[Rfam]
RNA sequence: UAACGAAAGCAGAAGCGCCCGCUUCUCACCUGACCGACGCUAAGAAGGCUGUUGGCAGGUUGUUACGGUUCGCCAACUUUUUGUCCGAACGUCGUGCGCGGGUGCUUUGUGCAUCCGCGCUUUUUCGUUGAG
Dot-bracket structure: ..........((((((....)))))).(((.....(((((.......)).)))....)))....................................(((((((((.....))))))))).............

Ribosomal protein L20 leader: a 132-nucleotide RNA from Geobacillus stearothermophilus.
The organism belongs to Geobacillus, within Bacteria.
Pairs were carried over by alignment from the consensus structure, which was predicted with CMfinder.
The sequence is in the family's curated seed alignment.